[Rfam]
RNA: c-di-GMP-I riboswitch aptamer
RNA sequence: CUCCGAUAAUAGCACCCCUGACCGAAAGGCAGGCCCGCAAAGUCAUUGGCCUACGUCUUGCCCAAGAAAGCAAGAUAUGGCAUGAAGGACCGCCGAA
Numbered sequence: 001c002u003c004c005g006a007u008a009a010u011a012g013c014a015c016c017c018c019u020g021a022c023c024g025a026a027a028g029g030c031a032g033g034c035c036c037g038c039a040a041a042g043u044c045a046u047u048g049g050c051c052u053a054c055g056u057c058u059u060g061c062c063c064a065a066g067a068a069a070g071c072a073a074g075a076u077a078u079g080g081c082a083u084g085a086a087g088g089a090c091c092g093c094c095g096a097a
Stems, first nucleotide, its partner, number of pairs: 012038002017033004022029002042090003046087002049081003056075006